RNA sequence: CCCGGUUCGCCGGGACGACAUGUGGUCGACUCCUUCGACUGAAUCGCAAG
Dot-bracket structure: (((((....))))).(((.....(((((.......)))))...)))....
A member of the RNA family "eL15-Euryarchaeota ribosomal protein leader", 50 nucleotides long. The sequence is in the family's curated seed alignment. The family's RNA type in Rfam is cis-regulatory leader.